[Rfam]
RNA sequence: CAACUCUGGAAAGCAGUCCGGGAGACCGGACUCACCGACGGUGCAAGUGGCGUCCUGCGACAGCGGGCAAUGCGGAAACUCUCAGGUCCCAGACAGAGCGGGGAGG
Numbered sequence: 001c002a003a004c005u006c007u008g009g010a011a012a013g014c015a016g017u018c019c020g021g022g023a024g025a026c027c028g029g030a031c032u033c034a035c036c037g038a039c040g041g042u043g044c045a046a047g048u049g050g051c052g053u054c055c056u057g058c059g060a061c062a063g064c065g066g067g068c069a070a071u072g073c074g075g076a077a078a079c080u081c082u083c084a085g086g087u088c089c090c091a092g093a094c095a096g097a098g099c100g101g102g103g104a105g106g
Base pairs, nucleotide, nucleotide: 001101004098005097006096007095008094015032016031017030018029034087035086036085037083038082041081043079048074049073
A member of the RNA family "Glycine riboswitch aptamer", 106 nucleotides long. This family represents the bacterial glycine riboswitch.